[Rfam]
RNA sequence: UGAGAGGCGCCAUGAAGUGAAAGCGACAUGGCGAAGCCCUCUGACAUCACAUGCAAAAGGCAUGUGGGCAAAUCUCCAGGUUGUAACGUACAGUGAACGUAGAUGUAGCCUCGUUACACGCAAUUCCGGUGGCUGAGACGGUCGAUAACGUGCGAAAGCAACAAGAACUGACCGAAACGAGUCUGGAACGGCAGUUCUCACCGGCGGGGUAUCAGCGGC
Numbered sequence: 001u002g003a004g005a006g007g008c009g010c011c012a013u014g015a016a017g018u019g020a021a022a023g024c025g026a027c028a029u030g031g032c033g034a035a036g037c038c039c040u041c042u043g044a045c046a047u048c049a050c051a052u053g054c055a056a057a058a059g060g061c062a063u064g065u066g067g068g069c070a071a072a073u074c075u076c077c078a079g080g081u082u083g084u085a086a087c088g089u090a091c092a093g094u095g096a097a098c099g100u101a102g103a104u105g106u107a108g109c110c111u112c113g114u115u116a117c118a119c120g121c122a123a124u125u126c127c128g129g130u131g132g133c134u135g136a137g138a139c140g141g142u143c144g145a146u147a148a149c150g151u152g153c154g155a156a157a158g159c160a161a162c163a164a165g166a167a168c169u170g171a172c173c174g175a176a177a178c179g180a181g182u183c184u185g186g187a188a189c190g191g192c193a194g195u196u197c198u199c200a201c202c203g204g205c206g207g208g209g210u211a212u213c214a215g216c217g218g219c
Stems, first nucleotide, its partner, number of pairs: 008033005017027001021184001023182002036069004040064001042062002047060001050059001052057001105213001106211001108210006126204006132159003137153001138151003164198007172186002
Overview: The family of this 219-nucleotide RNA sequence from Bacillus thuringiensis is "Group II catalytic intron D1-D4-6". The sequence is in the family's curated seed alignment. The literature on the family includes a 2001 paper in Trends Genet by Bonen and Vogel, "The ins and outs of group II introns". Rfam links the family to the GO term Group II intron splicing. The source organism's lineage runs through Bacteria, Bacillota, Caryophanales, Bacillaceae and Bacillus.